[Rfam]
The record is a 146-nucleotide sequence from Aegilops tauschii, which matches "Small nucleolar RNA snoR2/U65" in Rfam. The family's consensus secondary structure was predicted with WAR. By type it is an H/ACA-box small nucleolar RNA. Rfam 15.1 lists 908 matches to the family in 230 species. Gene Ontology terms of the family: RNA processing and nucleolus.
RNA sequence: GGCCUGAUGCCAUGUCUCAGGUAGCUACGGCUUUGACCGGAGAUCCUACAUUGUGCCAUUAGAGAGAUGUUGGACGUUUCACAUUUGAUAGGAACCUGUGGACAUGAUUUAGUCGGUACACAGAACCGUUUUUUGUGAUUACACUG
Numbered sequence: 001g002g003c004c005u006g007a008u009g010c011c012a013u014g015u016c017u018c019a020g021g022u023a024g025c026u027a028c029g030g031c032u033u034u035g036a037c038c039g040g041a042g043a044u045c046c047u048a049c050a051u052u053g054u055g056c057c058a059u060u061a062g063a064g065a066g067a068u069g070u071u072g073g074a075c076g077u078u079u080c081a082c083a084u085u086u087g088a089u090a091g092g093a094a095c096c097u098g099u100g101g102a103c104a105u106g107a108u109u110u111a112g113u114c115g116g117u118a119c120a121c122a123g124a125a126c127c128g129u130u131u132u133u134u135g136u137g138a139u140u141a142c143a144c145u146g
Stems, first nucleotide, its partner, number of pairs: 002056002005053005014044005020038003024031002079138005091127002096123003100119001102117002